[Rfam]
RNA sequence: GAGGCAGAGGAAGCACGGCCGCGCAGCCAACAAACAGGGAGCUUGCUCCUGAUCAUGCUGCGGGGAAAGUCCCCGUGCCUUGGGGCAGAAAGUGCCAGUGGGAGACCACAAGGCCAGCGCCAAAAGCUUGCAGUGAAGCCUCGUGUGGAGCUGUUUUGUCUUGGAGCUGGCCACUUGCAACAGCACAGUCAUGCCGUGAGCACUCCAGCAAGUGCGAACUGAACGGGGCUUACUCUCCUGAUGCCU
Number, nucleotide and partner (000 for none) at each position: 001g000002a246003g245004g244005c243006a242007g000008a239009g238010g237011a236012a000013g000014c198015a197016c196017g195018g194019c193020c000021g000022c062023g061024c060025a059026g058027c057028c000029a000030a000031c000032a000033a000034a000035c000036a000037g050038g049039g048040a047041g046042c000043u000044u000045g000046c041047u040048c039049c038050u037051g000052a000053u000054c000055a000056u000057g027058c026059u025060g024061c023062g022063g000064g000065g000066a000067a231068a230069g229070u000071c228072c227073c226074c225075g000076u000077g000078c000079c000080u000081u000082g000083g000084g096085g095086c094087a093088g000089a000090a000091a000092g000093u087094g086095c085096c084097a000098g109099u108100g107101g106102g000103a000104g000105a000106c101107c100108a099109c098110a000111a000112g000113g000114c170115c169116a168117g167118c166119g000120c164121c163122a162123a161124a000125a000126g000127c000128u000129u000130g000131c153132a152133g151134u150135g000136a000137a000138g000139c000140c000141u000142c000143g000144u000145g000146u000147g000148g000149a000150g134151c133152u132153g131154u000155u000156u000157u000158g000159u000160c000161u123162u122163g121164g120165a000166g118167c117168u116169g115170g114171c000172c000173a000174c000175u000176u000177g000178c000179a000180a000181c000182a000183g000184c000185a000186c000187a000188g000189u000190c000191a000192u000193g019194c018195c017196g016197u015198g014199a000200g215201c214202a213203c212204u211205c000206c000207a000208g000209c000210a000211a204212g203213u202214g201215c200216g000217a000218a000219c000220u000221g000222a000223a000224c000225g074226g073227g072228g071229c069230u068231u067232a000233c000234u000235c000236u011237c010238c009239u008240g000241a000242u006243g005244c004245c003246u002
Rfam assigns this 246-nucleotide RNA from Symbiodinium pilosum to the family "RNase MRP". RNase MRP is an enzymatically active ribonucleoprotein with two distinct roles in eukaryotes. In mitochondria it plays a direct role in the initiation of mitochondrial DNA replication. In the nucleus it is involved in precursor rRNA processing, where it cleaves the internal transcribed spacer 1 between 18S and 5.8S rRNAs. Despite distinct functions, RNase MRP has been shown to be evolutionarily related to RNase P. Like eukaryotic RNase P, RNase MRP is not catalytically active without associated protein subunits. The match comes from Rfam's covariance-model search (111 bits).